RNA sequence: GAAAGACGCGCAUUUGUUAUCAUCAUCCCUGUUUUCAGUGAUGAAAUUUUGGCCACUCCGUGAGUGGCCUUUU
Numbered sequence: 001g002a003a004a005g006a007c008g009c010g011c012a013u014u015u016g017u018u019a020u021c022a023u024c025a026u027c028c029c030u031g032u033u034u035u036c037a038g039u040g041a042u043g044a045a046a047u048u049u050u051g052g053c054c055a056c057u058c059c060g061u062g063a064g065u066g067g068c069c070u071u072u073u
Stems, first nucleotide, its partner, number of pairs: 024043004029038003051069007

This 73-nucleotide RNA sequence from Salmonella enterica belongs to the Rfam family "MicA sRNA".
It is annotated as a small RNA.
A search with the family's covariance model found it, with a score of 84 bits.
For this family Rfam cites "Novel small RNA-encoding genes in the intergenic regions of Escherichia coli" (Argaman et al., Curr Biol, 2001).
Lineage of the source: Bacteria > Enterobacteriaceae > Salmonella > Salmonella enterica > Salmonella enterica subsp. arizonae.